About this RNA:
A. fumigatus sRNA Afu_254: a 143-nucleotide RNA sequence from Penicillium cf. viridicatum. Lineage of the source: Eukaryota > Fungi > Dikarya > Aspergillaceae > Penicillium. By type it is a small RNA. The match comes from Rfam's covariance-model search (88 bits).

RNA sequence: AUCCAAACUAAACACUACUCUUAAGCUUCUUUUUCAAGGUUCUCUACCUACCACCUCUAUAUUCAUCAUGUCUCCCUGCACCUGCAACUGCUGCUCCGGCGAGUGCAACUCCUGCUCUUGCUCUACCUGCACUGUAUGUCAUU
Numbered sequence: 001a002u003c004c005a006a007a008c009u010a011a012a013c014a015c016u017a018c019u020c021u022u023a024a025g026c027u028u029c030u031u032u033u034u035c036a037a038g039g040u041u042c043u044c045u046a047c048c049u050a051c052c053a054c055c056u057c058u059a060u061a062u063u064c065a066u067c068a069u070g071u072c073u074c075c076c077u078g079c080a081c082c083u084g085c086a087a088c089u090g091c092u093g094c095u096c097c098g099g100c101g102a103g104u105g106c107a108a109c110u111c112c113u114g115c116u117c118u119u120g121c122u123c124u125a126c127c128u129g130c131a132c133u134g135u136a137u138g139u140c141a142u143u
Base pairs, nucleotide, nucleotide: 077101078100079099084094085093086092105130106129107128114121115120